[Rfam]
RNA: pan motif
Organism: Desulfomonile tiedjei
RNA sequence: UGAUCUGGAGUCUCUCGGGACCCGGAAUCACCGGUAAACGCUUAACUAUAAACCGCCUGGAUCUUUUUGACCGGGACGGAAGG
Numbered sequence: 001u002g003a004u005c006u007g008g009a010g011u012c013u014c015u016c017g018g019g020a021c022c023c024g025g026a027a028u029c030a031c032c033g034g035u036a037a038a039c040g041c042u043u044a045a046c047u048a049u050a051a052a053c054c055g056c057c058u059g060g061a062u063c064u065u066u067u068u069g070a071c072c073g074g075g076a077c078g079g080a081a082g083g
Stems, first nucleotide, its partner, number of pairs: 001030003004026005010021002053079003056075005062070002